[Rfam]
RNA sequence: AAGUCCUUUAAGACAGUCCAGAGAGGCUGGGAAGGAAGCGGAUUUGUAGCUGGCAAUCAAAAGUCCAAAGUUACAUUAUGUUAUACCAUUCGUUCAUCCUCUCGCCCUCAGGUGAGAGGAUUUUUUUGU
Numbered sequence: 001a002a003g004u005c006c007u008u009u010a011a012g013a014c015a016g017u018c019c020a021g022a023g024a025g026g027c028u029g030g031g032a033a034g035g036a037a038g039c040g041g042a043u044u045u046g047u048a049g050c051u052g053g054c055a056a057u058c059a060a061a062a063g064u065c066c067a068a069a070g071u072u073a074c075a076u077u078a079u080g081u082u083a084u085a086c087c088a089u090u091c092g093u094u095c096a097u098c099c100u101c102u103c104g105c106c107c108u109c110a111g112g113u114g115a116g117a118g119g120a121u122u123u124u125u126u127u128g129u
Base pairs, nucleotide, nucleotide: 004036005035006034007033008032009031014029015028016027017026018025059090060089063086064085067082068081070079071078096121097120098119099118100117101116102115103114104113105112106111